[Rfam]
RNA sequence: UGCGCAGGGCGUGGCGGAUCACCACAUCGCGGAAGCGCACGCCUUUCAGCCGCGCGGUGCGGAUAUAUUGCGCCGUCAUCACCUCGGUCAUGGAGGCGCGGGUCAUGCGGGCGAUAUAGCCGAUGCCAUAUAGUGCGAUGGUGAGCACCGGCAGGAAGAAAUUCUCGAAGGUGAUAUC
Dot-bracket structure: ....((..((((.(..(..((.........(......(.(.(...(.(.(((((((((((((.....))))))))......((((.......))))))))).).)...).).)......)...)).)...).))))..))......(...((.((((....)))).....))....).
Numbered sequence: 001u002g003c004g005c006a007g008g009g010c011g012u013g014g015c016g017g018a019u020c021a022c023c024a025c026a027u028c029g030c031g032g033a034a035g036c037g038c039a040c041g042c043c044u045u046u047c048a049g050c051c052g053c054g055c056g057g058u059g060c061g062g063a064u065a066u067a068u069u070g071c072g073c074c075g076u077c078a079u080c081a082c083c084u085c086g087g088u089c090a091u092g093g094a095g096g097c098g099c100g101g102g103u104c105a106u107g108c109g110g111g112c113g114a115u116a117u118a119g120c121c122g123a124u125g126c127c128a129u130a131u132a133g134u135g136c137g138a139u140g141g142u143g144a145g146c147a148c149c150g151g152c153a154g155g156a157a158g159a160a161a162u163u164c165u166c167g168a169a170g171g172u173g174a175u176a177u178c
Stems, first nucleotide, its partner, number of pairs: 005140002009136004014131001017127001020125002031120001038113001040111001042109001046105001048103001050101005055075008082096004147177001151172002154165004